The record is an 87-nucleotide RNA from Nostoc sp. PCC 7107, which matches "Photosynthesis regulatory RNA1" in Rfam. Rfam describes the family as follows. Formerly known as Syr1 discovered in Synechocystis sp PCC 6803, is a regulatory factor controlling photosynthetic functions. For this family Rfam cites "The small regulatory RNA SyR1/PsrR1 controls photosynthetic functions in cyanobacteria" (Georg et al., Plant Cell, 2014). A search with the family's covariance model found it, with a score of 43 bits. Rfam links the family to the GO terms regulation of translation and regulation of photosynthesis. The family has 13 seed sequences and 92 matches in Rfam 15.1.
[Rfam]
RNA sequence: AAGAUUUUUGAACUUCAGUUAGGUUAUCUUUACUCAUCGCCAUUUGGACUUCUCCUAAUUUCCUCGGUACUUAAAGCCGAGGUUUUU
Numbered sequence: 001a002a003g004a005u006u007u008u009u010g011a012a013c014u015u016c017a018g019u020u021a022g023g024u025u026a027u028c029u030u031u032a033c034u035c036a037u038c039g040c041c042a043u044u045u046g047g048a049c050u051u052c053u054c055c056u057a058a059u060u061u062c063c064u065c066g067g068u069a070c071u072u073a074a075a076g077c078c079g080a081g082g083u084u085u086u087u
Stems, first nucleotide, its partner, number of pairs: 062082007
The base pairs follow the family's consensus structure, which was predicted with CMfinder.